Source information
Shown here is a 111-nucleotide RNA from Zizania palustris, a member of the family "MIR394 microRNA precursor family". The match comes from Rfam's covariance-model search (94 bits). A reference for the family is Jones-Rhoades and Bartel (2004), "Computational identification of plant microRNAs and their targets, including a stress-induced miRNA", Mol Cell. The organism belongs to Zizania, within Eukaryota. Rfam links the family to the GO terms RISC complex and miRNA-mediated post-transcriptional gene silencing. Pairs were carried over by alignment from the consensus structure, which was predicted with WAR.

RNA sequence: CUUACUGAGAGUUCUUUGGCAUUCUGUCCACCUCCUUGUUGAAUCUUUGCAGAAAACGUCUCAAAUCUGAUGGUUUUGGAGGUGGGCAUACUGCCAAUGGAGCUGUGUAGG
Numbered sequence: 001c002u003u004a005c006u007g008a009g010a011g012u013u014c015u016u017u018g019g020c021a022u023u024c025u026g027u028c029c030a031c032c033u034c035c036u037u038g039u040u041g042a043a044u045c046u047u048u049g050c051a052g053a054a055a056a057c058g059u060c061u062c063a064a065a066u067c068u069g070a071u072g073g074u075u076u077u078g079g080a081g082g083u084g085g086g087c088a089u090a091c092u093g094c095c096a097a098u099g100g101a102g103c104u105g106u107g108u109a110g111g
Stems, first nucleotide, its partner, number of pairs: 013101001016097006025088011
Dot-bracket structure: ............(..((((((...(((((((((((..........................................)))))))))))...))))))...)..........